The family of this 248-nucleotide RNA from Pseudobacteriovorax antillogorgiicola is "Group II catalytic intron D1-D4-6".
Rfam links the family to the GO term Group II intron splicing.
Group II introns are found in rRNA, tRNA and mRNA of organelles in fungi, plants and protists, and also in mRNA in bacteria.
The base pairs follow the family's consensus structure.
RNA sequence: AAAGUCUCGAAUGGAUAAAUGGCAGUCCUCCAUAUCCAGAGCGAGCCUUGCGUACAUGGAGGUGACAAUAUGGACGAAGCGUAGGCAGCGUUAAACACCAGGCCGCAAGCGGUAGCUGAAGUGAUUGCGUCCCGUAAUGAGUUUCGUUGGAGUGGUCGACGCUUGCAAUAAAGCGGAAGACAACAUCGGUUAGAGGCGACUUGAAAAGUCAGGACUUAUCUAACCAGCACCCCCGGGAUCCUAGAGCG
Number, nucleotide and partner (000 for none) at each position: 001a000002a000003a000004g000005u000006c000007u000008c000009g000010a000011a000012u038013g037014g036015a035016u034017a000018a000019a000020u032021g031022g030023c000024a000025g000026u000027c000028c000029u000030c022031c021032a020033u000034a016035u015036c014037c013038a012039g000040a000041g089042c088043g000044a000045g086046c085047c084048u083049u081050g080051c076052g075053u074054a000055c072056a071057u070058g069059g000060a000061g066062g000063u000064g000065a000066c061067a000068a000069u058070a057071u056072g055073g000074a053075c052076g051077a000078a000079g000080c050081g049082u000083a048084g047085g046086c045087a000088g042089c041090g000091u000092u000093a000094a000095a000096c000097a000098c000099c000100a000101g000102g000103c000104c000105g000106c000107a000108a000109g000110c000111g000112g000113u000114a000115g000116c000117u000118g000119a000120a000121g000122u000123g000124a000125u000126u000127g240128c000129g239130u238131c237132c236133c235134g234135u000136a000137a000138u000139g000140a000141g000142u000143u000144u000145c000146g000147u000148u000149g233150g232151a000152g230153u229154g228155g181156u180157c179158g000159a000160c175161g174162c173163u172164u000165g000166c000167a000168a000169u000170a000171a000172a163173g162174c161175g160176g000177a000178a000179g157180a156181c155182a000183a000184c000185a000186u227187c000188g225189g224190u223191u222192a221193g220194a219195g000196g000197c000198g000199a000200c000201u000202u000203g000204a000205a000206a000207a000208g000209u000210c000211a000212g000213g000214a000215c000216u000217u000218a000219u194220c193221u192222a191223a190224c189225c188226a000227g186228c154229a153230c152231c000232c150233c149234c134235g133236g132237g131238a130239u129240c127241c000242u000243a000244g000245a000246g000247c000248g000